[Rfam]
The record is a 35-nucleotide RNA sequence, which matches "ffh sRNA" in Rfam. It is annotated as a small RNA. The family's consensus secondary structure is taken from published work.
RNA sequence: CGACACUAGUCAGCGAGGCUUCGCCCACUAGUGCG
Numbered sequence: 001c002g003a004c005a006c007u008a009g010u011c012a013g014c015g016a017g018g019c020u021u022c023g024c025c026c027a028c029u030a031g032u033g034c035g
Stems, first nucleotide, its partner, number of pairs: 004033007013024004